Rfam assigns this 80-nucleotide RNA to the family "S15-Methanomicrobia ribosomal protein leader". On this family, see Eckert and Weinberg, BMC Microbiol 2020: "Discovery of 20 novel ribosomal leader candidates in bacteria and archaea".
[Rfam]
RNA sequence: GGCACAUAUCUGUGUGCUGGCAUGUGUAAGUCCGACGUGCCGGAAUGGCACGGCCUUGCGGGAAUCAGGCUCGGGAUUAC
Numbered sequence: 001g002g003c004a005c006a007u008a009u010c011u012g013u014g015u016g017c018u019g020g021c022a023u024g025u026g027u028a029a030g031u032c033c034g035a036c037g038u039g040c041c042g043g044a045a046u047g048g049c050a051c052g053g054c055c056u057u058g059c060g061g062g063a064a065u066c067a068g069g070c071u072c073g074g075g076a077u078u079a080c
Base pairs, nucleotide, nucleotide: 001018002017003016004015005014006013026080027079028078029077032075033074037051038050039049040048041047052071053070054069055068